Record summary:
The record is a 134-nucleotide RNA from Cicer arietinum, which matches "Small nucleolar RNA SNORA69" in Rfam. The family's RNA type in Rfam is H/ACA-box small nucleolar RNA. From the family's description: U69 is a member of the H/ACA class of small nucleolar RNAs (snoRNAs) which act as guides in the the modification of uridines to pseudouridines. NCBI's taxonomy places the organism under Eukaryota, Mesangiospermae, fabids, Fabaceae, Cicer. The base pairs follow the family's consensus structure, which was predicted with PFOLD.
RNA sequence: AUUAUGGGUGGCCAUUUUACAGCGCUUUUUUGAGAAAGCGCCGUAAAAUGCAGACCCAUAAUAUGAAAAUUAUGGGUGUGCAUUUUACAGCGCUUUCUUGAGAAAGCGUUGUAAAAUGCACACCCAUAAUAUGA
Numbered sequence: 001a002u003u004a005u006g007g008g009u010g011g012c013c014a015u016u017u018u019a020c021a022g023c024g025c026u027u028u029u030u031u032g033a034g035a036a037a038g039c040g041c042c043g044u045a046a047a048a049u050g051c052a053g054a055c056c057c058a059u060a061a062u063a064u065g066a067a068a069a070u071u072a073u074g075g076g077u078g079u080g081c082a083u084u085u086u087a088c089a090g091c092g093c094u095u096u097c098u099u100g101a102g103a104a105a106g107c108g109u110u111g112u113a114a115a116a117u118g119c120a121c122a123c124c125c126a127u128a129a130u131a132u133g134a
Base pairs, nucleotide, nucleotide: 003060004059005058006057007056008055018045019044020043022041023040024039025038026037071128072127073126074125075124076123077122078121079120080119081118087112088111089110090109091108092107093106094105095104096103097102